[Rfam]
RNA sequence: UCUAGCAAUAUAUUUGCAGGUUUUAGGUCUAAGUGAAGGAUAUCGAUCUCUGUGAAUAUAUUGUAAACCUUCACAAAUUCCCUUGAUUAUUUCAUAGCGCUAUUUUAAAAGAAAUUAUUUGGCAUUUGGCAUUGUCCAACAUGCAUAUCUAUGACUUGAGAAGUUUAAAGAAAUACAGUCAUUGGAUAUUGUGUUUGACUUAGAAAGAAAGAUGGAGAAGUUAAACAAAAAGUUGCGAAGGCAGAUGAAUGCUUUGCUUAUGCAUAAUCCAUAUUGAUAAAGUGCUAUGGAAUGAUCAAGGAAUUUGUGAGGUUUACAUUAUCUUCGCAAGAGUUGUAUUGUUCACUUAGACCUAGACAUGCAAGUAUAUUUCUAGG
Numbered sequence: 001u002c003u004a005g006c007a008a009u010a011u012a013u014u015u016g017c018a019g020g021u022u023u024u025a026g027g028u029c030u031a032a033g034u035g036a037a038g039g040a041u042a043u044c045g046a047u048c049u050c051u052g053u054g055a056a057u058a059u060a061u062u063g064u065a066a067a068c069c070u071u072c073a074c075a076a077a078u079u080c081c082c083u084u085g086a087u088u089a090u091u092u093c094a095u096a097g098c099g100c101u102a103u104u105u106u107a108a109a110a111g112a113a114a115u116u117a118u119u120u121g122g123c124a125u126u127u128g129g130c131a132u133u134g135u136c137c138a139a140c141a142u143g144c145a146u147a148u149c150u151a152u153g154a155c156u157u158g159a160g161a162a163g164u165u166u167a168a169a170g171a172a173a174u175a176c177a178g179u180c181a182u183u184g185g186a187u188a189u190u191g192u193g194u195u196u197g198a199c200u201u202a203g204a205a206a207g208a209a210a211g212a213u214g215g216a217g218a219a220g221u222u223a224a225a226c227a228a229a230a231a232g233u234u235g236c237g238a239a240g241g242c243a244g245a246u247g248a249a250u251g252c253u254u255u256g257c258u259u260a261u262g263c264a265u266a267a268u269c270c271a272u273a274u275u276g277a278u279a280a281a282g283u284g285c286u287a288u289g290g291a292a293u294g295a296u297c298a299a300g301g302a303a304u305u306u307g308u309g310a311g312g313u314u315u316a317c318a319u320u321a322u323c324u325u326c327g328c329a330a331g332a333g334u335u336g337u338a339u340u341g342u343u344c345a346c347u348u349a350g351a352c353c354u355a356g357a358c359a360u361g362c363a364a365g366u367a368u369a370u371u372u373c374u375a376g377g
Stems, first nucleotide, its partner, number of pairs: 002376004007371012020358004025354010039340004044336003048333004054326003058322003062318003066314006073308007081301003085297008094288008103280002128278001130276002133273003141265007150256002184254002187251004191246002194243001197242001199241001200238002204234001219233001221231002
RNA: MIR5048 microRNA precursor family
Organism: Triticum turgidum